[Rfam]
RNA sequence: UGGAUCGAUGAUGAUUUCUGGUCAUCAUCAUUAUGAAUCAUAUGCAAUGAAAGUGUGUCUGGAACUCUGAGGCCCAA
Numbered sequence: 001u002g003g004a005u006c007g008a009u010g011a012u013g014a015u016u017u018c019u020g021g022u023c024a025u026c027a028u029c030a031u032u033a034u035g036a037a038u039c040a041u042a043u044g045c046a047a048u049g050a051a052a053g054u055g056u057g058u059c060u061g062g063a064a065c066u067c068u069g070a071g072g073c074c075c076a077a
Base pairs, nucleotide, nucleotide: 002075003074005072006071
Dot-bracket structure: .((.((................................................................)).))..
Shown here is a 77-nucleotide RNA from Moschus moschiferus, a member of the family "Small nucleolar RNA SNORD113/SNORD114 family". For this family Rfam cites "Identification of tandemly-repeated C/D snoRNA genes at the imprinted human 14q32 domain reminiscent of those at the Prader-Willi/Angelman syndrome region" (Cavaille et al., Hum Mol Genet, 2002). A search with the family's covariance model found it, with a score of 48 bits. Rfam links the family to the GO terms nucleolus and RNA processing. The base pairs follow the family's consensus structure, which is taken from published work. From the family's description: The imprinted human domain at 14q32 contains two clusters of tandemly repeated small nucleolar RNAs named 14q(I) and 14q(II) snoRNAs.